[Rfam]
RNA sequence: CUGAGGGUCCCCACCUGGGACCCUUGAGAGUAUCAGGUCUCCCACGUGGGAGACAAGAAAUCCCUGUUUAAUAUUUAAACAGCAGUGUUCCCC
Numbered sequence: 001c002u003g004a005g006g007g008u009c010c011c012c013a014c015c016u017g018g019g020a021c022c023c024u025u026g027a028g029a030g031u032a033u034c035a036g037g038u039c040u041c042c043c044a045c046g047u048g049g050g051a052g053a054c055a056a057g058a059a060a061u062c063c064c065u066g067u068u069u070a071a072u073a074u075u076u077a078a079a080c081a082g083c084a085g086u087g088u089u090c091c092c093c
Stems, first nucleotide, its partner, number of pairs: 003025009033058002037054007064082008
Annotation
This 93-nucleotide RNA sequence belongs to the Rfam family "G-CSF factor stem-loop destabilising element (SLDE)". A reference for the family is Putland et al. (2002), "RNA destabilization by the granulocyte colony-stimulating factor stem-loop destabilizing element involves a single stem-loop that promotes deadenylation", Mol Cell Biol. Rfam's curators write: This family represents the granulocyte colony-stimulating factor stem-loop destabilising element (G-CSF SLDE). Rfam 15.1 lists 132 matches to the family in 132 species. Gene Ontology term of the family: nuclear-transcribed mRNA poly(A) tail shortening. The sequence is in the family's curated seed alignment. The family's consensus secondary structure is taken from published work. The family's RNA type in Rfam is cis-regulatory element.